[Rfam]
RNA: c-di-AMP riboswitch aptamer (ydaO/yuaA leader)
RNA sequence: GGGCAGGCGCCGUCGAGUCGCGACGCGUCGCGAGCCGGGGACCCACGUAGUCCUUGGGGUGCAUCCGCGCGCCGGCUUCCCAGCCGGCCCGUGGUAGGGCGAAUCCUCCCGUCCGAACCCGUCAGCUAACCCGGUAGGCGGCCUCGGAAGGAGUU
Numbered sequence: 001g002g003g004c005a006g007g008c009g010c011c012g013u014c015g016a017g018u019c020g021c022g023a024c025g026c027g028u029c030g031c032g033a034g035c036c037g038g039g040g041a042c043c044c045a046c047g048u049a050g051u052c053c054u055u056g057g058g059g060u061g062c063a064u065c066c067g068c069g070c071g072c073c074g075g076c077u078u079c080c081c082a083g084c085c086g087g088c089c090c091g092u093g094g095u096a097g098g099g100c101g102a103a104u105c106c107u108c109c110c111g112u113c114c115g116a117a118c119c120c121g122u123c124a125g126c127u128a129a130c131c132c133g134g135u136a137g138g139c140g141g142c143c144u145c146g147g148a149a150g151g152a153g154u155u
Stems, first nucleotide, its partner, number of pairs: 008140004018033005034135006044056002057120003065094004097114004